The record is a 77-nucleotide sequence from Darwinula stevensoni, which matches "let-7 microRNA precursor family" in Rfam. A search with the family's covariance model found it, with a score of 56 bits. Taxonomically the source falls in Darwinula (Eukaryota, Opisthokonta, Pancrustacea, Ostracoda). The family has 64 seed sequences and 8,694 matches in Rfam 15.1. From the family's description: This family represents the microRNAs (miRNA) let-7 and mir-98. let-7 was identified from a study of developmental timing in C. elegans, and was later shown to be part of a much larger class of non-coding RNAs termed miRNAs. Its Rfam clan is "let-7 microRNA precursor clan". For this family Rfam cites "Control of developmental timing in animals" (Rougvie, Nat Rev Genet, 2001).
RNA sequence: CCUGCGUGAGGUAGUAGGUUGUAUAGUUGAGAACUACACCAUUGCAGGAGAACUGUACAACUUGCUAGCUUUCCCGG
Numbered sequence: 001c002c003u004g005c006g007u008g009a010g011g012u013a014g015u016a017g018g019u020u021g022u023a024u025a026g027u028u029g030a031g032a033a034c035u036a037c038a039c040c041a042u043u044g045c046a047g048g049a050g051a052a053c054u055g056u057a058c059a060a061c062u063u064g065c066u067a068g069c070u071u072u073c074c075c076g077g
Base pairs, nucleotide, nucleotide: 001077002076004074006072008071009070010069012067013066014065015064016063017062018061019060020059021058022057023056024055025054026053027052029039031037042047